[Rfam]
RNA: Class I RNA from Dictyostelium
RNA sequence: GAACUCCUUACAGCAAUCUAAAUGAUCUUUUUUCUCCAAAAAAAACAAACCUUGAGUUCUG
Numbered sequence: 001g002a003a004c005u006c007c008u009u010a011c012a013g014c015a016a017u018c019u020a021a022a023u024g025a026u027c028u029u030u031u032u033u034c035u036c037c038a039a040a041a042a043a044a045a046c047a048a049a050c051c052u053u054g055a056g057u058u059c060u061g
Base pairs, nucleotide, nucleotide: 001059002058003057004056005055006054